Rfam assigns this 73-nucleotide sequence from Pseudothauera rhizosphaerae to the family "SAH (S-adenosyl-L-homocysteine) riboswitch aptamer".
Pairs were carried over by alignment from the consensus structure, which is taken from published work.
The organism belongs to Pseudothauera, within Bacteria.
[Rfam]
RNA sequence: UCUGCCGAGGGGCGCUGCGACCUGAACCGCGUUCGGGCCAGGCUCGGCAACCGAACAACGGCGCUCGCAAACC
Numbered sequence: 001u002c003u004g005c006c007g008a009g010g011g012g013c014g015c016u017g018c019g020a021c022c023u024g025a026a027c028c029g030c031g032u033u034c035g036g037g038c039c040a041g042g043c044u045c046g047g048c049a050a051c052c053g054a055a056c057a058a059c060g061g062c063g064c065u066c067g068c069a070a071a072c073c
Base pairs, nucleotide, nucleotide: 003049004048005047006046007045008044021037022036023035024034025033026032